Description:
A member of the RNA family "MIR812 microRNA precursor family" from Oryza sativa, 197 nucleotides long.
RNA sequence: AAUUACUCCAUUUUUCAGUUCUUGAUACAACGUUUGACUCUUCGUCUUAUUUAAAAAUUUUCUAUGAUUAGUAUUUUUAUUGUUAUUAGAUAAUAAAAUAUGAAUAGUAUUUUAUGUGUUACUAAUUUUUUUUAAAAAAAAAUUAUAUAAGACGGACGGUGAAACGUUGGACAUAAAAAACUAAAAAUGAAGUCUCU
Numbered sequence: 001a002a003u004u005a006c007u008c009c010a011u012u013u014u015u016c017a018g019u020u021c022u023u024g025a026u027a028c029a030a031c032g033u034u035u036g037a038c039u040c041u042u043c044g045u046c047u048u049a050u051u052u053a054a055a056a057a058u059u060u061u062c063u064a065u066g067a068u069u070a071g072u073a074u075u076u077u078u079a080u081u082g083u084u085a086u087u088a089g090a091u092a093a094u095a096a097a098a099u100a101u102g103a104a105u106a107g108u109a110u111u112u113u114a115u116g117u118g119u120u121a122c123u124a125a126u127u128u129u130u131u132u133u134a135a136a137a138a139a140a141a142a143u144u145a146u147a148u149a150a151g152a153c154g155g156a157c158g159g160u161g162a163a164a165c166g167u168u169g170g171a172c173a174u175a176a177a178a179a180a181c182u183a184a185a186a187a188u189g190a191a192g193u194c195u196c197u
Stems, first nucleotide, its partner, number of pairs: 026171001028169004033164003037160003041156010
The match comes from Rfam's covariance-model search (108 bits). Gene Ontology terms of the family: miRNA-mediated post-transcriptional gene silencing and RISC complex. Pairs were carried over by alignment from the consensus structure, which was predicted with RNAalifold.